The family of this 101-nucleotide sequence from Alteribacillus persepolensis is "TPP riboswitch aptamer (THI element)".

Nucleotides: 101
Stems, first nucleotide, its partner, number of pairs: 006089005011051004017026003033044004057082004063076004
Number, partner (000 for none) and nucleotide at each position: 001000a002000u003000g004000u005000u006089c007088c008087a009086c010085u011051a012050g013049a014048g015000g016000u017026g018025u019024c020000u021000u022000g023000u024019g025018a026017c027000u028000g029000a030000g031000a032000g033044a034043g035042a036041c037000a038000a039000g040000u041036g042035u043034c044033u045000c046000a047000a048014c049013u050012c051011u052000u053000a054000g055000a056000a057082c058081c059080u060079g061000a062000u063076c064075u065074g066073g067000c068000u069000a070000a071000g072000a073066c074065c075064a076063g077000c078000g079060u080059a081058g082057g083000g084000a085010a086009g087008u088007g089006g090000c091000g092000u093000g094000a095000c096000a097000a098000g099000g100000u101000g

Rfam describes the family as follows. Vitamin B(1) in its active form thiamin pyrophosphate (TPP) is an essential coenzyme that is synthesised by coupling of pyrimidine and thiazole moieties in bacteria. The previously detected thiamin-regulatory element, thi box was extended, resulting in a new, highly conserved RNA secondary structure, the THI element, which is widely distributed in eubacteria and also occurs in some archaea. Analysis of operon structures identified a large number of new candidate thiamin-regulated genes, mostly transporters, in various prokaryotic organisms. The THI element is a riboswitch that directly binds to TPP to regulate gene expression through a variety of mechanisms in archaea, bacteria and eukaryotes. through a variety of mechanisms in archaea, bacteria and eukaryotes.